[Rfam]
RNA sequence: GAUUAAUUGAAUCCAAUCCAUUAGCAACGUUUUUGUUUGAUGAACGGAUUUGAUGAAUUUUAUA
Numbered sequence: 001g002a003u004u005a006a007u008u009g010a011a012u013c014c015a016a017u018c019c020a021u022u023a024g025c026a027a028c029g030u031u032u033u034u035g036u037u038u039g040a041u042g043a044a045c046g047g048a049u050u051u052g053a054u055g056a057a058u059u060u061u062a063u064a
Base pairs, nucleotide, nucleotide: 005059006058007057008056011054012053013052015050016049017048018047019046021044022043025039026038027036028035
RNA: MIR5291 microRNA precursor family